[Rfam]
Nucleotides: 061
Stems, first nucleotide, its partner, number of pairs: 017045011
Number, partner (000 for none) and nucleotide at each position: 001000u002000g003000c004000g005000a006000u007000a008000c009000c010000c011000a012000u013000c014000a015000a016000a017045g018044g019043a020042g021041u022040a023039g024038c025037u026036c027035c028000c029000u030000a031000c032000c033000g034000a035027g036026g037025a038024g039023c040022u041021g042020c043019u044018u045017u046000a047000u048000u049000g050000u051000a052000u053000u054000u055000u056000g057000a058000a059000u060000u061000c
Plastid-psbN 5UTR RNA: a 61-nucleotide sequence from Ziziphus jujuba.
Plastid psbN is a non-coding RNA (ncRNA) recognised in plastids. It was reported as a conserved 11 stem-loop in the prime untranslated region (5UTR) of psbN genes.
NCBI's taxonomy places the organism under Eukaryota, Magnoliopsida, Gunneridae, fabids, Ziziphus.
The family's RNA type in Rfam is cis-regulatory element.
Pairs were carried over by alignment from the consensus structure, which was predicted with LocARNA.